[Rfam]
RNA sequence: ACUUGAAAAAGGCAAAUUUGUCGAAAGGCAAAGACGCAAAGCUAUGGGCCUAAACGAUUAUUAUCGCAUGGUUGCCAGGUUGCCAGG
Dot-bracket structure: ...........((...((((((....))))))...))..((((.((((((....((((....))))...)))..)))))))......

This 87-nucleotide RNA sequence from Clostridium manihotivorum belongs to the Rfam family "c-di-GMP-I riboswitch aptamer". Its Rfam clan is "c-di-GMP_I riboswitch clan". GEMM was predicted in a large-scale screen for bacterial structured RNA regulatory elements. The base pairs follow the family's consensus structure, which is taken from published work. The match comes from Rfam's covariance-model search (86 bits).